MIR397 microRNA precursor family: a 130-nucleotide RNA from Trifolium pratense.

[Rfam]
RNA sequence: UAAAAAAACAUGAUUGAGUGUAGCGUCGAUGAAAUCAAGCAUGCAAUAUUUGAUAUCAAAUAUCAUGUAGCAAGACACAACUUAGCUGCUAUUUAGAAUUUCAUCAACGCUGCACUCAAUGAUGUUUCUU
Numbered sequence: 001u002a003a004a005a006a007a008a009c010a011u012g013a014u015u016g017a018g019u020g021u022a023g024c025g026u027c028g029a030u031g032a033a034a035u036c037a038a039g040c041a042u043g044c045a046a047u048a049u050u051u052g053a054u055a056u057c058a059a060a061u062a063u064c065a066u067g068u069a070g071c072a073a074g075a076c077a078c079a080a081c082u083u084a085g086c087u088g089c090u091a092u093u094u095a096g097a098a099u100u101u102c103a104u105c106a107a108c109g110c111u112g113c114a115c116u117c118a119a120u121g122a123u124g125u126u127u128c129u130u
Stems, first nucleotide, its partner, number of pairs: 006127006013120014028105001030103006